The record is a 146-nucleotide RNA sequence from Enhydra lutris, which matches "U4 spliceosomal RNA" in Rfam.
Rfam classes the family as a spliceosomal small nuclear RNA.
Lineage of the source: Eukaryota > Metazoa > Sarcopterygii > Mammalia > Enhydra lutris.
U4 small nuclear RNA (U4 snRNA) is a component of the major U2-dependent spliceosome.
RNA sequence: AGCUUUGUGCAGUGGCAGUAUCGUAGCCAAUGAGGUUUAUCCGAGGCGCGAUUAUUGCUAAUAAGAAGCUUCUAAAAUGAAUGAGACACUAGAUCUAGUCUGCCUGCUUCCAUGCUGAGUCAAAAAAAUGGAAAAUCCCUUAGGGA
Numbered sequence: 001a002g003c004u005u006u007g008u009g010c011a012g013u014g015g016c017a018g019u020a021u022c023g024u025a026g027c028c029a030a031u032g033a034g035g036u037u038u039a040u041c042c043g044a045g046g047c048g049c050g051a052u053u054a055u056u057g058c059u060a061a062u063a064a065g066a067a068g069c070u071u072c073u074a075a076a077a078u079g080a081a082u083g084a085g086a087c088a089c090u091a092g093a094u095c096u097a098g099u100c101u102g103c104c105u106g107c108u109u110c111c112a113u114g115c116u117g118a119g120u121c122a123a124a125a126a127a128a129u130g131g132a133a134a135a136u137c138c139c140u141u142a143g144g145g146a
Base pairs, nucleotide, nucleotide: 020052021051022050023049024048026047027046028045034042035041090123092121093120094119096117097116098115099114101112102111136146137145138144139143